[Rfam]
Nucleotides: 068
Stems, first nucleotide, its partner, number of pairs: 005064012019050005025044004
Number, partner (000 for none) and nucleotide at each position: 001000c002000c003000a004000c005064u006063a007062c008061u009060g010059u011058u012057g013056c014055u015054a016053a017000u018000a019050u020049g021048c022047a023046a024000c025044u026043c027042u028041g029000u030000u031000g032000a033000a034000c035000a036000c037000a038000a039000a040000u041028u042027g043026g044025a045000a046023u047022u048021g049020c050019a051000c052000u053016u054015u055014a056013g057012c058011a059010a060009u061008g062007g063006u064005g065000a066000u067000g068000g